Overview:
The family of this 148-nucleotide sequence from Desulfitobacterium hafniense is "c-di-AMP riboswitch aptamer (ydaO/yuaA leader)". The match comes from Rfam's covariance-model search (78 bits). Rfam describes the family as follows. This family represents a conserved RNA structure found upstream of the ydaO and yuaA genes in Bacillus subtilis and related genes in other bacteria.

RNA sequence: UUGCAGUCAAGGCUGAAUUUCCCAAAAAGGAAAACGGGGGAACCAUAUUGGGGGUGAAUCAUUGUUAAGGAGAGCAAACUCCUUAAAAUGACGGAAAGGUAUCAUUCCGAACCCGGCAGCUAACCUCGUAAGCGUGUGAACCGUUUUA
Numbered sequence: 001u002u003g004c005a006g007u008c009a010a011g012g013c014u015g016a017a018u019u020u021c022c023c024a025a026a027a028a029g030g031a032a033a034a035c036g037g038g039g040g041a042a043c044c045a046u047a048u049u050g051g052g053g054g055u056g057a058a059u060c061a062u063u064g065u066u067a068a069g070g071a072g073a074g075c076a077a078a079c080u081c082c083u084u085a086a087a088a089u090g091a092c093g094g095a096a097a098g099g100u101a102u103c104a105u106u107c108c109g110a111a112c113c114c115g116g117c118a119g120c121u122a123a124c125c126u127c128g129u130a131a132g133c134g135u136g137u138g139a140a141c142c143g144u145u146u147u148a
Stems, first nucleotide, its partner, number of pairs: 012133003018033005034129006044051001052114003060090004093108004